[Rfam]
Small nucleolar RNA Z163/Z177 family: a 78-nucleotide sequence from Leersia perrieri. The base pairs follow the family's consensus structure. Rfam 15.1 lists 49 matches to the family in 12 species. Rfam links the family to the GO terms RNA processing and nucleolus. The organism belongs to Leersia, within Eukaryota. The match comes from Rfam's covariance-model search (60 bits).

RNA sequence: UGGCCAGUGAUGAAACUUGAGUUGUAUAGAUACUCUGGUGAGUUAAAUGAAAUGCAGUUGACACACUCUCUGAGGCCA
Numbered sequence: 001u002g003g004c005c006a007g008u009g010a011u012g013a014a015a016c017u018u019g020a021g022u023u024g025u026a027u028a029g030a031u032a033c034u035c036u037g038g039u040g041a042g043u044u045a046a047a048u049g050a051a052a053u054g055c056a057g058u059u060g061a062c063a064c065a066c067u068c069u070c071u072g073a074g075g076c077c078a
Base pairs, nucleotide, nucleotide: 001078002077003076004075005074